RNA sequence: UUAAUGAACGCUUUAGCUAUUGGACUAUACUGUCUCUCUCUGACAGAUAACAAUUUGUUCUUUGGCGGAGAGGGACAAAUCAGUUCAAUAGCUAAAGCAUCCACUAAC
Dot-bracket structure: (((.((....((((((((((((((((...(((((..............((((...))))....))))).............))))))))))))))))....)).))).
RNA: mir-8517 microRNA precursor family